[Rfam]
RNA sequence: AAAAAACAAAUGGGGAGCUUGCGGCUGCAGGCUGAGAGUAGGCAAUGUGAAGCCUUGACCCACAACCUGAUUUGGGUAAUGCCAACGUAGGGAUAUAUCUGCUUUCUUUU
Numbered sequence: 001a002a003a004a005a006a007c008a009a010a011u012g013g014g015g016a017g018c019u020u021g022c023g024g025c026u027g028c029a030g031g032c033u034g035a036g037a038g039u040a041g042g043c044a045a046u047g048u049g050a051a052g053c054c055u056u057g058a059c060c061c062a063c064a065a066c067c068u069g070a071u072u073u074g075g076g077u078a079a080u081g082c083c084a085a086c087g088u089a090g091g092g093a094u095a096u097a098u099c100u101g102c103u104u105u106c107u108u109u110u
Base pairs, nucleotide, nucleotide: 006098008096010094011062012061013060014059016056017032018031019030020029021028040055041054042053043052066091067090068089069088072085073084074083075082
RNA: TPP riboswitch aptamer (THI element)